[Rfam]
RNA sequence: CGGUGCCCUAUGAUGACAAAAUCAAGGCUUGUUUCUCUACAUUCGCAGUUGCCGCCUAAGAGCUUUCGCCCUGCCAGGCUUGAGAGCUAAUGCUGCAGAAUCCUUCCUUGGAUGUCUGAGGGCCGCCG
Numbered sequence: 001c002g003g004u005g006c007c008c009u010a011u012g013a014u015g016a017c018a019a020a021a022u023c024a025a026g027g028c029u030u031g032u033u034u035c036u037c038u039a040c041a042u043u044c045g046c047a048g049u050u051g052c053c054g055c056c057u058a059a060g061a062g063c064u065u066u067c068g069c070c071c072u073g074c075c076a077g078g079c080u081u082g083a084g085a086g087c088u089a090a091u092g093c094u095g096c097a098g099a100a101u102c103c104u105u106c107c108u109u110g111g112a113u114g115u116c117u118g119a120g121g122g123c124c125g126c127c128g
Stems, first nucleotide, its partner, number of pairs: 005123004062087006
About this RNA: A member of the RNA family "Small nucleolar RNA SNORD14" from Zea mays, 128 nucleotides long. A reference for the family is Samarsky et al. (1996), "An essential domain in Saccharomyces cerevisiae U14 snoRNA is absent in vertebrates, but conserved in other yeasts", Nucleic Acids Res. Its family is annotated with RNA processing and nucleolus in the Gene Ontology. NCBI's taxonomy places the organism under Eukaryota, Tracheophyta, Magnoliopsida, Liliopsida, Zea.